[Rfam]
RNA sequence: AUAAUGCUGCAAGAACAGGCGGCCGACCUCACAGUUGGUGAAGCCGGGCACCUUGGGUGCAGCAAGUGUCGGAAAGAGCACUUGUGGGACUGUA
Numbered sequence: 001a002u003a004a005u006g007c008u009g010c011a012a013g014a015a016c017a018g019g020c021g022g023c024c025g026a027c028c029u030c031a032c033a034g035u036u037g038g039u040g041a042a043g044c045c046g047g048g049c050a051c052c053u054u055g056g057g058u059g060c061a062g063c064a065a066g067u068g069u070c071g072g073a074a075a076g077a078g079c080a081c082u083u084g085u086g087g088g089a090c091u092g093u094a
Stems, first nucleotide, its partner, number of pairs: 012091002016088001018045003022039006048060005062085006
RNA: NiCo (Nickel/Cobalt) riboswitch aptamer